[Rfam]
RNA sequence: GGCGUCAAUGAUGGUUCCAACCUACAUUGUUUGAGACACAAUGAGAAAGGCCUGAGCUGAGACGCCC
Numbered sequence: 001g002g003c004g005u006c007a008a009u010g011a012u013g014g015u016u017c018c019a020a021c022c023u024a025c026a027u028u029g030u031u032u033g034a035g036a037c038a039c040a041a042u043g044a045g046a047a048a049g050g051c052c053u054g055a056g057c058u059g060a061g062a063c064g065c066c067c
Stems, first nucleotide, its partner, number of pairs: 001066001003064004
The record is a 67-nucleotide sequence from Tinamus guttatus, which matches "Small nucleolar RNA SNORD34" in Rfam. Lineage of the source: Eukaryota > Tetrapoda > Coelurosauria > Palaeognathae > Tinamus. A search with the family's covariance model found it, with a score of 39 bits. The family is grouped with related families in Rfam's "SNORD34 clan". A reference for the family is Galardi et al. (2002), "Purified box C/D snoRNPs are able to reproduce site-specific 2'-O-methylation of target RNA in vitro", Mol Cell Biol. Rfam describes the family as follows. snoRNA U34 is found in intron 5 of the ribosomal protein L13a gene in humans.